[Rfam]
Nucleotides: 115
Base pairs, nucleotide, nucleotide: 001079002078003077004076009038011037012036013035014034015033016032021030022029039066040065041064044062045061046060048057049056082104083103084102085101086100087099088098089097090096091095
Number, partner (000 for none) and nucleotide at each position: 001079g002078g003077u004076c005000a006000c007000g008000a009038g010000u011037g012036u013035c014034a015033g016032c017000g018000u019000c020000a021030a022029g023000c024000c025000c026000c027000g028000g029022c030021u031000a032016g033015c034014u035013g036012a037011c038009c039066g040065g041064c042000a043000a044062c045061c046060c047000u048057c049056c050000u051000u052000c053000c054000g055000c056049g057048g058000u059000g060046g061045g062044g063000u064041g065040c066039c067000c068000c069000g070000g071000g072000u073000g074000a075000g076004g077003a078002c079001c080000u081000g082104g083103c084102u085101c086100g087099u088098c089097g090096c091095g092000c093000g094000g095091u096090g097089c098088g099087a100086c101085g102084g103083g104082c105000a106000a107000g108000c109000g110000c111000g112000g113000g114000a115000u

The record is a 115-nucleotide sequence from Amycolatopsis keratiniphila, which matches "SAM (S-adenosyl methionine) riboswitch aptamer" in Rfam. It scores 118 bits against the family's covariance model. About the family: SAM-IV is a mRNA element that regulates gene expression via direct sensing of S-adenosylmethionine (SAM or AdoMet). SAM-IV riboswitches share conserved nucleotide positions with the previously described SAM-I riboswitches sequence analysis and molecular recognition experiments suggest that SAM-I and SAM-IV riboswitches share similar ligand binding sites, but have different scaffolds. The literature on the family includes a 2008 paper in RNA by Weinberg et al., "The aptamer core of SAM-IV riboswitches mimics the ligand-binding site of SAM-I riboswitches".